RNA sequence: UUCGAAGGGUGGUCCCUCAGCCUGGAUUGUGAGAGGGCACAGGCCAGGCUGAGGGACCCCACAGGUGCACU
Numbered sequence: 001u002u003c004g005a006a007g008g009g010u011g012g013u014c015c016c017u018c019a020g021c022c023u024g025g026a027u028u029g030u031g032a033g034a035g036g037g038c039a040c041a042g043g044c045c046a047g048g049c050u051g052a053g054g055g056a057c058c059c060c061a062c063a064g065g066u067g068c069a070c071u
Stems, first nucleotide, its partner, number of pairs: 004068001006066001009060001011058012024045002027042005
Annotation:
mir-9193 microRNA precursor family: a 71-nucleotide RNA from Myotis davidii. The source organism's lineage runs through Eukaryota, Deuterostomia, Euteleostomi, Mammalia and Myotis. The match comes from Rfam's covariance-model search (70 bits). Its family is annotated with miRNA-mediated post-transcriptional gene silencing and RISC complex in the Gene Ontology. The family's consensus secondary structure was predicted with RNAalifold.